RNA sequence: ACGCAUGUUGCGGGAGAGAGUAUUUGCCGUCUAACCCAGACGGGUAAGAUGCCGCCGAAGGCGCAAUUCGCCCAGAAUCGCUCAGGCCCCCCAUACCGUAGCUUGCAU
Numbered sequence: 001a002c003g004c005a006u007g008u009u010g011c012g013g014g015a016g017a018g019a020g021u022a023u024u025u026g027c028c029g030u031c032u033a034a035c036c037c038a039g040a041c042g043g044g045u046a047a048g049a050u051g052c053c054g055c056c057g058a059a060g061g062c063g064c065a066a067u068u069c070g071c072c073c074a075g076a077a078u079c080g081c082u083c084a085g086g087c088c089c090c091c092c093a094u095a096c097c098g099u100a101g102c103u104u105g106c107a108u
Stems, first nucleotide, its partner, number of pairs: 007102007020052006054087003057083002061081003067074001